[Rfam]
RNA sequence: AAGGAGCGAAGCGAUUCACCUCCUCCCGAACCGCUUCGGUUCGGCGGACGGCAUUCCUCCUCCCCAGCUUUCCGUCAUUUAUUGAAGCCCGGCGCACCUCCUCCCGCGCCGGGUUUUUUUG
Numbered sequence: 001a002a003g004g005a006g007c008g009a010a011g012c013g014a015u016u017c018a019c020c021u022c023c024u025c026c027c028g029a030a031c032c033g034c035u036u037c038g039g040u041u042c043g044g045c046g047g048a049c050g051g052c053a054u055u056c057c058u059c060c061u062c063c064c065c066a067g068c069u070u071u072c073c074g075u076c077a078u079u080u081a082u083u084g085a086a087g088c089c090c091g092g093c094g095c096a097c098c099u100c101c102u103c104c105c106g107c108g109c110c111g112g113g114u115u116u117u118u119u120u121g
Stems, first nucleotide, its partner, number of pairs: 007038003011034003015030003043076006050069003085116011
This 121-nucleotide sequence from Sinorhizobium saheli belongs to the Rfam family "Alphaproteobacterial ar14". The family's RNA type in Rfam is small RNA. Its family is annotated with biological process involved in symbiotic interaction in the Gene Ontology. The source organism's lineage runs through Bacteria, Pseudomonadati, Pseudomonadota, Alphaproteobacteria and Sinorhizobium. The base pairs follow the family's consensus structure.